Rfam assigns this 99-nucleotide RNA from Pseudocercospora fijiensis to the family "Small nucleolar RNA Z13/snr52".

RNA sequence: AGCUCGCAAGAUGAAAUAUUUUUGGAUGAAAAACAAAUACCACCGAUGGCGCAAAAACCAUGUGGAAAUCUCCAUGUUGCCUUCCUUCUGAUCAAGAGC
Numbered sequence: 001a002g003c004u005c006g007c008a009a010g011a012u013g014a015a016a017u018a019u020u021u022u023u024g025g026a027u028g029a030a031a032a033a034c035a036a037a038u039a040c041c042a043c044c045g046a047u048g049g050c051g052c053a054a055a056a057a058c059c060a061u062g063u064g065g066a067a068a069u070c071u072c073c074a075u076g077u078u079g080c081c082u083u084c085c086u087u088c089u090g091a092u093c094a095a096g097a098g099c
Stems, first nucleotide, its partner, number of pairs: 003098003023074004
Gene Ontology terms of the family: nucleolus and RNA processing.